This 105-nucleotide RNA sequence from Prunus yedoensis belongs to the Rfam family "MIR6274 microRNA precursor family". The match comes from Rfam's covariance-model search (84 bits). Taxonomically the source falls in Prunus yedoensis (Eukaryota, Embryophyta, Gunneridae, fabids).

RNA sequence: GGGUAUCACUUUUUGCUAUUCUCGGCUAAUAACGCAAUGACACGUAUGAUAACUUUUCCACAUGACAUUGUGUUAUUGGCCGAGAAUAGCAAAACAGUGUUAUCC
Numbered sequence: 001g002g003g004u005a006u007c008a009c010u011u012u013u014u015g016c017u018a019u020u021c022u023c024g025g026c027u028a029a030u031a032a033c034g035c036a037a038u039g040a041c042a043c044g045u046a047u048g049a050u051a052a053c054u055u056u057u058c059c060a061c062a063u064g065a066c067a068u069u070g071u072g073u074u075a076u077u078g079g080c081c082g083a084g085a086a087u088a089g090c091a092a093a094a095c096a097g098u099g100u101u102a103u104c105c
Stems, first nucleotide, its partner, number of pairs: 002104004011094009021084019041064002044061002048057002